Annotation: The record is a 117-nucleotide RNA sequence from Paracoccus aestuariivivens, which matches "ALIL pseudoknot" in Rfam. Lineage of the source: Bacteria > Pseudomonadati > Rhodobacterales > Paracoccaceae > Paracoccus. The match comes from Rfam's covariance-model search (106 bits). By type it is a cis-regulatory element.

[Rfam]
RNA sequence: UGCAUAUUUCGCGGCGGCGGAGCUCGACCGCCCGUUCAGGCGAUGAUCGCGUUCCUUGACGAACAGCGGGGCAUGUUUGGUGUCGGGCCGAUCUGCAGGGUUCUGGGGAUCGCACCA
Numbered sequence: 001u002g003c004a005u006a007u008u009u010c011g012c013g014g015c016g017g018c019g020g021a022g023c024u025c026g027a028c029c030g031c032c033c034g035u036u037c038a039g040g041c042g043a044u045g046a047u048c049g050c051g052u053u054c055c056u057u058g059a060c061g062a063a064c065a066g067c068g069g070g071g072c073a074u075g076u077u078u079g080g081u082g083u084c085g086g087g088c089c090g091a092u093c094u095g096c097a098g099g100g101u102u103c104u105g106g107g108g109a110u111c112g113c114a115c116c117a
Stems, first nucleotide, its partner, number of pairs: 016032005078117005089112002092109003096105003